[Rfam]
RNA: Bacterial small subunit ribosomal RNA, nucleotides 1 to 546
Organism: Mesotoga prima
RNA sequence: UGGAUGGAGGGUUUGAUCCUGGCUCAGGGUGAACGCUGGCGGCGUGCUUGACACAUGCAAGUCGAACGGUAUGUGGCAACACAUAGAGUGGCGAACGGGUGAGUAACACGUGGGAACGUACCCUACGCAGGGGGAUAACUGACCGAAAGGACAGCUAAUACCGCAUAAGACCGAAAGGUGAAAGGUGCAAAUGCAUCGGCGAAGGAGCGGCCCGCGGACCAUCAGCUAGUUGGUGGGGUAAGAGCCUACCAAGGCGACGACGGUUAGCCGGCGUGAGAGCGUGGCCGGCCACAAGGACACUGAGAUACGGGUCCUACUCCUACGGGAGGCAGCAGUGCGGAAUUUUAGAUAAUGGAGGCAACUCUGAUCUAGCGACGCCGCGUGCAGGAAGAAGGUCUUCGGAUUGUAAACUGCUGUGGUAAGGGAAAAAUGUCAUGUAGAGUGGAAAGCUACAUGGAGGGAUGGUACUUUACUAGAAAGCCCCGGCUAACUACGUGCCAGCAGCCGCGGUAAUACGUAGGGGGCGAGCGUUACCCGGAAUCACUG
Numbered sequence: 001u002g003g004a005u006g007g008a009g010g011g012u013u014u015g016a017u018c019c020u021g022g023c024u025c026a027g028g029g030u031g032a033a034c035g036c037u038g039g040c041g042g043c044g045u046g047c048u049u050g051a052c053a054c055a056u057g058c059a060a061g062u063c064g065a066a067c068g069g070u071a072u073g074u075g076g077c078a079a080c081a082c083a084u085a086g087a088g089u090g091g092c093g094a095a096c097g098g099g100u101g102a103g104u105a106a107c108a109c110g111u112g113g114g115a116a117c118g119u120a121c122c123c124u125a126c127g128c129a130g131g132g133g134g135a136u137a138a139c140u141g142a143c144c145g146a147a148a149g150g151a152c153a154g155c156u157a158a159u160a161c162c163g164c165a166u167a168a169g170a171c172c173g174a175a176a177g178g179u180g181a182a183a184g185g186u187g188c189a190a191a192u193g194c195a196u197c198g199g200c201g202a203a204g205g206a207g208c209g210g211c212c213c214g215c216g217g218a219c220c221a222u223c224a225g226c227u228a229g230u231u232g233g234u235g236g237g238g239u240a241a242g243a244g245c246c247u248a249c250c251a252a253g254g255c256g257a258c259g260a261c262g263g264u265u266a267g268c269c270g271g272c273g274u275g276a277g278a279g280c281g282u283g284g285c286c287g288g289c290c291a292c293a294a295g296g297a298c299a300c301u302g303a304g305a306u307a308c309g310g311g312u313c314c315u316a317c318u319c320c321u322a323c324g325g326g327a328g329g330c331a332g333c334a335g336u337g338c339g340g341a342a343u344u345u346u347a348g349a350u351a352a353u354g355g356a357g358g359c360a361a362c363u364c365u366g367a368u369c370u371a372g373c374g375a376c377g378c379c380g381c382g383u384g385c386a387g388g389a390a391g392a393a394g395g396u397c398u399u400c401g402g403a404u405u406g407u408a409a410a411c412u413g414c415u416g417u418g419g420u421a422a423g424g425g426a427a428a429a430a431u432g433u434c435a436u437g438u439a440g441a442g443u444g445g446a447a448a449g450c451u452a453c454a455u456g457g458a459g460g461g462a463u464g465g466u467a468c469u470u471u472a473c474u475a476g477a478a479a480g481c482c483c484c485g486g487c488u489a490a491c492u493a494c495g496u497g498c499c500a501g502c503a504g505c506c507g508c509g510g511u512a513a514u515a516c517g518u519a520g521g522g523g524g525c526g527a528g529c530g531u532u533a534c535c536c537g538g539a540a541u542c543a544c545u546g
Stems, first nucleotide, its partner, number of pairs: 009025005027536004032532006039381006045374002047339001052337003056334003061092003066089002070085006099292003109216006117209002122205003126201003130164001132162002139154003143150002170179003184197005218264003225255003230252008267289004271282004294315005317328004345371001347370003353366005384414004394405004419473006428463001434456007480525005491520005501508002